[Rfam]
RNA sequence: GAGUUACCUCUUUGUUUGUUUUGAUUAAAGAUUCAGCACCUUUAUCAAAACGGGUAACUCUCUACUUUUCAAGAAGAUGUGUCAGAUCUUGUCUGAACUAAUUCACUUAAUUUGGCUACAUGGUGUUCGCUGUCACUAAAUUUUUGACAUAAAAAAAUGCGACUCAUAGAGUCGCAUUUCUUUAUCU
Numbered sequence: 001g002a003g004u005u006a007c008c009u010c011u012u013u014g015u016u017u018g019u020u021u022u023g024a025u026u027a028a029a030g031a032u033u034c035a036g037c038a039c040c041u042u043u044a045u046c047a048a049a050a051c052g053g054g055u056a057a058c059u060c061u062c063u064a065c066u067u068u069u070c071a072a073g074a075a076g077a078u079g080u081g082u083c084a085g086a087u088c089u090u091g092u093c094u095g096a097a098c099u100a101a102u103u104c105a106c107u108u109a110a111u112u113u114g115g116c117u118a119c120a121u122g123g124u125g126u127u128c129g130c131u132g133u134c135a136c137u138a139a140a141u142u143u144u145u146g147a148c149a150u151a152a153a154a155a156a157a158u159g160c161g162a163c164u165c166a167u168a169g170a171g172u173c174g175c176a177u178u179u180c181u182u183u184a185u186c187u
Stems, first nucleotide, its partner, number of pairs: 001060007009053002018051008027043001029041002063184001067140003073134002076128002081098002083095005100124001102123002105121001155178002159175007
RNA: Proteobacterial sRNA psRNA2
Organism: Thalassotalea euphylliae